[Rfam]
RNA sequence: UCGCGGCGCCGCGACUGGCGAGGGUGGGCCACCACCGGGGAGCGGCAUGACGACCUUCGGACGCGUCGACCGCCUGGGCGCCUCGG
Dot-bracket structure: ..(..(.(((((..(([[[[...((((....))))..))..))))).)..)...........(((((...]]]]..))))).....

Rfam assigns this 86-nucleotide RNA from Actinacidiphila yanglinensis to the family "ZMP/ZTP riboswitch aptamer (pfl RNA motif)". For this family Rfam cites "An ancient riboswitch class in bacteria regulates purine biosynthesis and one-carbon metabolism" (Kim et al., Mol Cell, 2015). NCBI's taxonomy places the organism under Bacteria, Actinomycetes, Kitasatosporales, Streptomycetaceae, Actinacidiphila. It scores 52 bits against the family's covariance model.